The family of this 130-nucleotide RNA sequence from Nannospalax galili is "Small nucleolar RNA SNORA71". For this family Rfam cites "The family of box ACA small nucleolar RNAs is defined by an evolutionarily conserved secondary structure and ubiquitous sequence elements essential for RNA accumulation" (Ganot et al., Genes Dev, 1997). The family has 40 seed sequences and 1,805 matches in Rfam 15.1. The members of this family belong to the H/ACA class of snoRNAs which bind a number of proteins (including dyskerin, Gar1p and Nop10p) to form snoRNP complexes. This class of snoRNAs are thought to guide the sites of modification of uridines to pseudouridines by forming direct base pairing interactions with substrate RNAs. This family includes U71 (SNORA71), ACA39 (SNORA39) and ACA60 (SNORA60). U71 and ACA60 are predicted to guide the pseudouridylation of U406 and U1004 in 18S rRNA respectively. There is currently no target RNA identified for ACA39. A search with the family's covariance model found it, with a score of 83 bits. The family's consensus secondary structure was predicted with PFOLD.
RNA sequence: CCCCGUAUUUGAAAGUGAUUGUGGACUGCCUGUACCCUGAUCAUUGAUAGUGUAGGGAGAGGAUACAGAAGCCUUUCCCCUUGUUCAGAGGGUUCACUGUUGUCCUUAACAAACGUGAUGCUUUCCCACA
Numbered sequence: 001c002c003c004c005g006u007a008u009u010u011g012a013a014a015g016u017g018a019u020u021g022u023g024g025a026c027u028g029c030c031u032g033u034a035c036c037c038u039g040a041u042c043a044u045u046g047a048u049a050g051u052g053u054a055g056g057g058a059g060a061g062g063a064u065a066c067a068g069a070a071g072c073c074u075u076u077c078c079c080c081u082u083g084u085u086c087a088g089a090g091g092g093u094u095c096a097c098u099g100u101u102g103u104c105c106u107u108a109a110c111a112a113a114c115g116u117g118a119u120g121c122u123u124u125c126c127c128a129c130a
Stems, first nucleotide, its partner, number of pairs: 001057003005053005014045008023037002068124005083114003089107004